[Rfam]
RNA: mir-929 microRNA precursor family
Organism: Rhodnius prolixus
RNA sequence: AGGGCUCAAAUUGACUCUAGUAGGGAGUCUUAAUCUUUAACGACUCCCUAAUGGAGUCAGAUUGAGUCACUU
Numbered sequence: 001a002g003g004g005c006u007c008a009a010a011u012u013g014a015c016u017c018u019a020g021u022a023g024g025g026a027g028u029c030u031u032a033a034u035c036u037u038u039a040a041c042g043a044c045u046c047c048c049u050a051a052u053g054g055a056g057u058c059a060g061a062u063u064g065a066g067u068c069a070c071u072u
Stems, first nucleotide, its partner, number of pairs: 011060008021050009